[Rfam]
RNA sequence: AAAUGUCUUCAGGGCAGGGUGCGAGUCCCGAUCGGCGGUAAAGUCCGCGAAUUACCGGCUAAUGUGGGUGAUUGAACUAGUGAGAUUCUAGUACCGACUGUUACAGUCAGGAUGGAAGAAGCGUAU
Numbered sequence: 001a002a003a004u005g006u007c008u009u010c011a012g013g014g015c016a017g018g019g020u021g022c023g024a025g026u027c028c029c030g031a032u033c034g035g036c037g038g039u040a041a042a043g044u045c046c047g048c049g050a051a052u053u054a055c056c057g058g059c060u061a062a063u064g065u066g067g068g069u070g071a072u073u074g075a076a077c078u079a080g081u082g083a084g085a086u087u088c089u090a091g092u093a094c095c096g097a098c099u100g101u102u103a104c105a106g107u108c109a110g111g112a113u114g115g116a117a118g119a120a121g122c123g124u125a126u
Base pairs, nucleotide, nucleotide: 003124004123005122007121008120009119010118017029018028019027031107032106033096034095035048036047037046038045043094044093051072052071053070076092077091078090079089080088098110099109100108
Dot-bracket structure: ..(((.((((......(((.......))).[[((((((....[[))))..(((................)))...(((((.......)))))]])).(((.....]]))).......)))))))..
The family of this 126-nucleotide RNA sequence from Aerococcus sp. HMSC10H05 is "FMN riboswitch aptamer (RFN element)".
Rfam links the family to the GO term FMN binding.
A search with the family's covariance model found it, with a score of 103 bits.